Overview
This 176-nucleotide sequence from Anaerosacchariphilus hominis belongs to the Rfam family "Lysine riboswitch aptamer". The match comes from Rfam's covariance-model search (118 bits).

RNA sequence: CAAAAAGAUAGAGGUUGCGUUUUCCAUCAGUACCUUUUCGGAUAUGACAGGCAUAGAAGAAGGAAAGGGAAAGGGGCUGACGCCGAAAGAGAUUGUUUCCUGUGAGUGGUUUCUUGGGCAUACCGUGAAGAACGAUAUGACUGUCACCGGUUACCCGGUGGGGCGCUAUCCGGAGA
Numbered sequence: 001c002a003a004a005a006a007g008a009u010a011g012a013g014g015u016u017g018c019g020u021u022u023u024c025c026a027u028c029a030g031u032a033c034c035u036u037u038u039c040g041g042a043u044a045u046g047a048c049a050g051g052c053a054u055a056g057a058a059g060a061a062g063g064a065a066a067g068g069g070a071a072a073g074g075g076g077c078u079g080a081c082g083c084c085g086a087a088a089g090a091g092a093u094u095g096u097u098u099c100c101u102g103u104g105a106g107u108g109g110u111u112u113c114u115u116g117g118g119c120a121u122a123c124c125g126u127g128a129a130g131a132a133c134g135a136u137a138u139g140a141c142u143g144u145c146a147c148c149g150g151u152u153a154c155c156c157g158g159u160g161g162g163g164c165g166c167u168a169u170c171c172g173g174a175g176a
Base pairs, nucleotide, nucleotide: 007170008169009168010167011166017083018082019081020080021079024076025075033068034067035066036065037064038063039062087115088114089113090112091111092110093109094108095107096106097105098104116142117141119139120138121137122136124134125133126132144161145160146159147158148157149156150155
Dot-bracket structure: ......(((((.....(((((..((.......(((((((......................)))))))......))..)))))...((((((((((((.....))))))))))))((.((((.(((.....))).)))).)).(((((((....)))))))....)))))......